[Rfam]
The family of this 146-nucleotide sequence from Hibiscus syriacus is "Small nucleolar RNA F1/F2/snoR5a". Gene Ontology terms of the family: RNA processing and nucleolus. This family contains F1, F2 and snoR5a sequences, all of which are members of the the H/ACA class of snoRNA that guide the sites of modification of uridines to pseudouridines. It is annotated as an H/ACA-box small nucleolar RNA.
RNA sequence: UGUUGCCCAUGGUAUCUGAUGUCCAGUAUGUAUUUGUAGCUGGAGAUCUCGUUUUGAUGGGCAGAUACAAAUUCAUGAACAGGUCUUGCGACACAGUUAGCUAUUCUGUUCACAAGCUUGCUGUUACUAAAUCCCUGCUCACAUUU
Numbered sequence: 001u002g003u004u005g006c007c008c009a010u011g012g013u014a015u016c017u018g019a020u021g022u023c024c025a026g027u028a029u030g031u032a033u034u035u036g037u038a039g040c041u042g043g044a045g046a047u048c049u050c051g052u053u054u055u056g057a058u059g060g061g062c063a064g065a066u067a068c069a070a071a072u073u074c075a076u077g078a079a080c081a082g083g084u085c086u087u088g089c090g091a092c093a094c095a096g097u098u099a100g101c102u103a104u105u106c107u108g109u110u111c112a113c114a115a116g117c118u119u120g121c122u123g124u125u126a127c128u129a130a131a132u133c134c135c136u137g138c139u140c141a142c143a144u145u146u
Stems, first nucleotide, its partner, number of pairs: 004063006018048003022044006030037001078139001080137003093124005099118004